[Rfam]
RNA: mir-9242 microRNA precursor family
RNA sequence: GGCCUCCCUCUGUGGGGCUAUCGAUCUUGGGGCCACAGAUCAAUUGCUCCACAGAGGGAGGCC
Dot-bracket structure: ((((((((((((((((((.((.(((((..(...)..))))).)).))))))))))))))))))